[Rfam]
RNA: mir-571 microRNA precursor family
RNA sequence: AAUGAGACCAAGUUGGGUGGGCCAUAUUCUGGUCUAUAGGCAAGACUGGGGGUCCUCAAGAUUGCCACCUAAAUGAGGGCUGUC
Numbered sequence: 001a002a003u004g005a006g007a008c009c010a011a012g013u014u015g016g017g018u019g020g021g022c023c024a025u026a027u028u029c030u031g032g033u034c035u036a037u038a039g040g041c042a043a044g045a046c047u048g049g050g051g052g053u054c055c056u057c058a059a060g061a062u063u064g065c066c067a068c069c070u071a072a073a074u075g076a077g078g079g080c081u082g083u084c
Stems, first nucleotide, its partner, number of pairs: 002083003006080001008078002012074003016070002018067002021065002024062001027059002032053004037048003